The family of this 35-nucleotide RNA is "DUF805b RNA". Rfam's curators put it in the seed alignment. The family's consensus secondary structure is taken from published work. It is annotated as a cis-regulatory element.
[Rfam]
RNA sequence: AAGGAGAAAACCGAAAAUCCUAAACAGAGUAGGUG
Numbered sequence: 001a002a003g004g005a006g007a008a009a010a011c012c013g014a015a016a017a018u019c020c021u022a023a024a025c026a027g028a029g030u031a032g033g034u035g
Stems, first nucleotide, its partner, number of pairs: 002021004010034003